[Rfam]
RNA sequence: UGGCCCAUCGGGGCCGCGGAUACCUGCUUUGAUUUUU
Numbered sequence: 001u002g003g004c005c006c007a008u009c010g011g012g013g014c015c016g017c018g019g020a021u022a023c024c025u026g027c028u029u030u031g032a033u034u035u036u037u
Base pairs, nucleotide, nucleotide: 003014004013005012006011017026018025019024
RNA: XIST RNA A repeat
Organism: Pan troglodytes